[Rfam]
RNA: c-di-AMP riboswitch aptamer (ydaO/yuaA leader)
Organism: Thermoleophilum album
RNA sequence: GCAAGCCCAGGGCCGAGUCUUCGUGCCACCAGGUGCGGAGAGCGGGGGACCCAAGGACCCAACGGGUCGGGGGCGAAUCGCCGUCUUAGCACGGCGUAGCGCGACUUCCAGCGCGAGCCCGACAGCUAACCCCGUAGGCCGCGACGGAAGGGGAG
Numbered sequence: 001g002c003a004a005g006c007c008c009a010g011g012g013c014c015g016a017g018u019c020u021u022c023g024u025g026c027c028a029c030c031a032g033g034u035g036c037g038g039a040g041a042g043c044g045g046g047g048g049a050c051c052c053a054a055g056g057a058c059c060c061a062a063c064g065g066g067u068c069g070g071g072g073g074c075g076a077a078u079c080g081c082c083g084u085c086u087u088a089g090c091a092c093g094g095c096g097u098a099g100c101g102c103g104a105c106u107u108c109c110a111g112c113g114c115g116a117g118c119c120c121g122a123c124a125g126c127u128a129a130c131c132c133c134g135u136a137g138g139c140c141g142c143g144a145c146g147g148a149a150g151g152g153g154a155g
Stems, first nucleotide, its partner, number of pairs: 011140004018041010042135006052070001071120003079096004099114004